[Rfam]
RNA sequence: AUCGGAAAUUAAGCGCCAGAGCUUGCGCGCGUAGUACGGCUGCUGCGCGGGUCCUUACGGAAGGGACCGCGCGGAUCAAGCAUCGGCCGAAGGAGCGGCAAGCUGACGAGGUGGAGGUGUUCGGAAUGUUCGGCGGGGACCUCCCGGUAUCGCAUUCGACCGUAAGCCGAUUCUCAAAUAGUCGGGGUGACCGGACUGACAAAAGAUCGGCAGGAUGCUCU
Numbered sequence: 001a002u003c004g005g006a007a008a009u010u011a012a013g014c015g016c017c018a019g020a021g022c023u024u025g026c027g028c029g030c031g032u033a034g035u036a037c038g039g040c041u042g043c044u045g046c047g048c049g050g051g052u053c054c055u056u057a058c059g060g061a062a063g064g065g066a067c068c069g070c071g072c073g074g075a076u077c078a079a080g081c082a083u084c085g086g087c088c089g090a091a092g093g094a095g096c097g098g099c100a101a102g103c104u105g106a107c108g109a110g111g112u113g114g115a116g117g118u119g120u121u122c123g124g125a126a127u128g129u130u131c132g133g134c135g136g137g138g139a140c141c142u143c144c145c146g147g148u149a150u151c152g153c154a155u156u157c158g159a160c161c162g163u164a165a166g167c168c169g170a171u172u173c174u175c176a177a178a179u180a181g182u183c184g185g186g187g188u189g190a191c192c193g194g195a196c197u198g199a200c201a202a203a204a205g206a207u208c209g210g211c212a213g214g215a216u217g218c219u220c221u
Base pairs, nucleotide, nucleotide: 020104021103022102023101024100025099026098028095113144114143115142116141117140121133122132123131124130145162146161147160148159166211167210168209169208170207171206172205180197181196182195183194185192186191